[Rfam]
RNA sequence: GAGUUUCGUCAGAACACUCCUCCUCCCAGUUCUGACGGAUACGACCGGCUCCUCCUCCUCCCAAAAGCCGGUCAUCCCAAAACGACACCCGCCGAACCCCUGACGGAUACGACCGGCUCCUCCUCCUCCCAAAAGCCGGUCAUCCCAAAACGACACCCGCCGAACCUCCUCCCUCGGCGGGUGUUGUUU
Dot-bracket structure: .....((((((((((.............))))))))))....((((((((.................................................................................)..)))))))...........(((((((((((..........))))))))))).....
This 189-nucleotide RNA from Nitratireductor indicus belongs to the Rfam family "Alphaproteobacterial ar14". Rfam 15.1 lists 784 matches to the family in 332 species. Gene Ontology term of the family: biological process involved in symbiotic interaction. Smr14C2 was renamed NfeR1 (Nodule Formation Efficiency RNA) highly expressed in salt stress and during the symbiotic interaction on legume roots. The base pairs follow the family's consensus structure.